[Rfam]
RNA sequence: UCGUAAGGACGACCUUACGCAUCCGCAGCAAACGGGGACGGCCCC
Numbered sequence: 001u002c003g004u005a006a007g008g009a010c011g012a013c014c015u016u017a018c019g020c021a022u023c024c025g026c027a028g029c030a031a032a033c034g035g036g037g038a039c040g041g042c043c044c045c
Base pairs, nucleotide, nucleotide: 002019003018004017005016006015007014008013034045035044036043037042
Dot-bracket structure: .(((((((....)))))))..............((((....))))